[Rfam]
RNA sequence: AGGAGGAAAUCCCCAAAUGAGGCACAGCAUCAUUUUUAUAUGGGACCGACGAACUGCCGCUGAACAGAGUGAGGGAGGCUACCCCAUAA
Numbered sequence: 001a002g003g004a005g006g007a008a009a010u011c012c013c014c015a016a017a018u019g020a021g022g023c024a025c026a027g028c029a030u031c032a033u034u035u036u037u038a039u040a041u042g043g044g045a046c047c048g049a050c051g052a053a054c055u056g057c058c059g060c061u062g063a064a065c066a067g068a069g070u071g072a073g074g075g076a077g078g079c080u081a082c083c084c085c086a087u088a089a
Stems, first nucleotide, its partner, number of pairs: 010045004017033004022028001056079003060074002064070002
A member of the RNA family "GA-cis RNA", 89 nucleotides long.
The sequence is in the family's curated seed alignment.
The base pairs follow the family's consensus structure, which is taken from published work.
By type it is a small RNA.